[Rfam]
RNA sequence: CGGGUAUAAAGUAGACGAGGGAAUUCGGCAAAUUAGCCCUGUAACUUCGGAAUAAAGGGUGCCUGCAGUCUUUACGAGGAGUAGGGACAGCAGGUCGCAGUGACAAGGGGGUCCCGACUGUUUAAUAAAAACACAGGAGACUGCUAGUCCGCAAGGAUGUGUAUAGUCUUUGAAUCUUGGUCAGUGGCGGUACCUAAAACUCAAGUUCAAUUGAGCUAAGGGCCGCUUAACACCGGGAGUAACUCUGACUCUCUUAAGGUAGCCAAAUGCCUUGUCGGGUAAGUUCCGACGUGCAUGAAUAGACCAACGAGGGCCCUACUGUCCCCGUCUGCAAACCGGCGAACCCACAUUAGGUGGACGAACAGUCCACCGU
Numbered sequence: 001c002g003g004g005u006a007u008a009a010a011g012u013a014g015a016c017g018a019g020g021g022a023a024u025u026c027g028g029c030a031a032a033u034u035a036g037c038c039c040u041g042u043a044a045c046u047u048c049g050g051a052a053u054a055a056a057g058g059g060u061g062c063c064u065g066c067a068g069u070c071u072u073u074a075c076g077a078g079g080a081g082u083a084g085g086g087a088c089a090g091c092a093g094g095u096c097g098c099a100g101u102g103a104c105a106a107g108g109g110g111g112u113c114c115c116g117a118c119u120g121u122u123u124a125a126u127a128a129a130a131a132c133a134c135a136g137g138a139g140a141c142u143g144c145u146a147g148u149c150c151g152c153a154a155g156g157a158u159g160u161g162u163a164u165a166g167u168c169u170u171u172g173a174a175u176c177u178u179g180g181u182c183a184g185u186g187g188c189g190g191u192a193c194c195u196a197a198a199a200c201u202c203a204a205g206u207u208c209a210a211u212u213g214a215g216c217u218a219a220g221g222g223c224c225g226c227u228u229a230a231c232a233c234c235g236g237g238a239g240u241a242a243c244u245c246u247g248a249c250u251c252u253c254u255u256a257a258g259g260u261a262g263c264c265a266a267a268u269g270c271c272u273u274g275u276c277g278g279g280u281a282a283g284u285u286c287c288g289a290c291g292u293g294c295a296u297g298a299a300u301a302g303a304c305c306a307a308c309g310a311g312g313g314c315c316c317u318a319c320u321g322u323c324c325c326c327g328u329c330u331g332c333a334a335a336c337c338g339g340c341g342a343a344c345c346c347a348c349a350u351u352a353g354g355u356g357g358a359c360g361a362a363c364a365g366u367c368c369a370c371c372g373u
Base pairs, nucleotide, nucleotide: 001338002337003336011332012331013330014329015328016327017326019324020323021322036060037059038058039057040056045050061095062094063093064092065091066090068088069087070086071085072084073083074082075081096100108317109316110315111314112313113312114311115309116308119133120132121131136171137170138169139168140167141166142165143164144161147158148157149156150155175303176302177301179234180233181232184231185230186227187226188225189224190223193222194221195220200215201214202213203212204211235253236252237251238250239249240248254258274290275289276288277287278286279285353371354370355369356368357367
Archaeal large subunit ribosomal RNA: a 373-nucleotide part of an RNA from uncultured marine crenarchaeote KM3-153-F8.